[Rfam]
RNA sequence: UGCCUUUAGUGUUGCCCAUUCGUUUUGGUUGCUAAUGAAUGUGGUGUCAAACAAGGCAUAAAGCAAGUUUUCCCUAUUGCAGCCUUUUUCUUUGCAACACUAGGAAUUAUUCCUUUGGAGUUUGCUGCAUAUGGAACAAAA
Dot-bracket structure: .(((((...((.((((((((((((.........)))))))).)))).))...)))))................((((((((((....((((..(....(.......).....)...))))...)))))).)))).......
This 141-nucleotide sequence from Notechis scutatus belongs to the Rfam family "Small nucleolar RNA SNORA13". The base pairs follow the family's consensus structure, which was predicted with CMfinder. Gene Ontology terms of the family: nucleolus and RNA processing. Clan: SNORA13 clan. ACA13 is a member of the H/ACA class of snoRNA that guide the sites of modification of uridines to pseudouridines. It scores 80 bits against the family's covariance model.